[Rfam]
RNA: msiK RNA
RNA sequence: GGCACCCCCGACUCCACUCGGAUCGUCCGGCACGUACCUGCCGGUGGAGGGAAUGCA
Numbered sequence: 001g002g003c004a005c006c007c008c009c010g011a012c013u014c015c016a017c018u019c020g021g022a023u024c025g026u027c028c029g030g031c032a033c034g035u036a037c038c039u040g041c042c043g044g045u046g047g048a049g050g051g052a053a054u055g056c057a
Stems, first nucleotide, its partner, number of pairs: 008051002012049005027044006